[Rfam]
This 58-nucleotide RNA sequence from Palleronia marisminoris belongs to the Rfam family "sul1 RNA".
RNA sequence: UCUGGACCCGGGUGCGAUCCCCGGGUGGCUCUCCUGGCCGCCGAUCCGCCGGGGCAAC
Numbered sequence: 001u002c003u004g005g006a007c008c009c010g011g012g013u014g015c016g017a018u019c020c021c022c023g024g025g026u027g028g029c030u031c032u033c034c035u036g037g038c039c040g041c042c043g044a045u046c047c048g049c050c051g052g053g054g055c056a057a058c
Stems, first nucleotide, its partner, number of pairs: 006026006033053006
The match comes from Rfam's covariance-model search (67 bits).
NCBI's taxonomy places the organism under Bacteria, Pseudomonadati, Pseudomonadota, Roseobacteraceae, Palleronia.
Rfam 15.1 lists 519 matches to the family in 480 species.
By type it is a riboswitch.